[Rfam]
RNA sequence: GUUAUUGAAAGGCAAACCUGCUGAAAGGCAGGGACGCAAAGUUUCCGACCUAAGGGCGCAUGCCUAAGGUAGCGGGACUGCCGUU
Numbered sequence: 001g002u003u004a005u006u007g008a009a010a011g012g013c014a015a016a017c018c019u020g021c022u023g024a025a026a027g028g029c030a031g032g033g034a035c036g037c038a039a040a041g042u043u044u045c046c047g048a049c050c051u052a053a054g055g056g057c058g059c060a061u062g063c064c065u066a067a068g069g070u071a072g073c074g075g076g077a078c079u080g081c082c083g084u085u
Base pairs, nucleotide, nucleotide: 012037013036017032018031019030020029021028022027040079041078042077043076045075046074047073048070049069050068055064056063057062
RNA: c-di-GMP-I riboswitch aptamer
Organism: Methylovorus glucosotrophus